L4-Archaeoglobi ribosomal protein leades: an 82-nucleotide RNA. The base pairs follow the family's consensus structure, which is taken from published work. A reference for the family is Eckert and Weinberg (2020), "Discovery of 20 novel ribosomal leader candidates in bacteria and archaea", BMC Microbiol.
[Rfam]
RNA sequence: CUGAUCGAGACGUUGGGCCAACGCCAGUGCAGCGCGCCCGGUUCCAGAGAAGAAUAUCUCUCCGGAAACGUCGAAGAGUCAG
Numbered sequence: 001c002u003g004a005u006c007g008a009g010a011c012g013u014u015g016g017g018c019c020a021a022c023g024c025c026a027g028u029g030c031a032g033c034g035c036g037c038c039c040g041g042u043u044c045c046a047g048a049g050a051a052g053a054a055u056a057u058c059u060c061u062c063c064g065g066a067a068a069c070g071u072c073g074a075a076g077a078g079u080c081a082g
Stems, first nucleotide, its partner, number of pairs: 001082005009072005014040004022034003042067004047062004